[Rfam]
RNA sequence: AAAAAAUCUCAGCCUUUUGGCUAAGAUCAAGUGUAGUUUCUGUUUUAUCGGUUUAAUAUCUGAUAUGCGAGCUAUCGGCUCACAUGAUAUUAUAUUAAUUUUAAUCAUGCGGAAUUCCCCUAACAGUAGCUUGCUGUUGGGGUUUUUGCUCGCUGCCUUUGCGUUGUGCUACGAAAAAGAAAUCAGAUAGACA
Dot-bracket structure: ......(((.((((....)))).)))...................((((((........)))))).(.(((((...))))).)...........................((((.(((.......((((....))))..))).))))..(..(((.((((...............))))....)))..)....
U2 spliceosomal RNA: a 193-nucleotide RNA sequence from Papaver somniferum. The source organism's lineage runs through Eukaryota, Viridiplantae, Tracheophyta, Euphyllophyta and Papaver. Gene Ontology terms of the family: pre-mRNA branch point binding, mRNA branch site recognition and U2 snRNP. It is annotated as a spliceosomal small nuclear RNA. U2 is a small nuclear RNA (snRNA) component of the spliceosome (involved in pre-mRNA splicing). Rfam 15.1 lists 71,512 matches to the family in 2,642 species.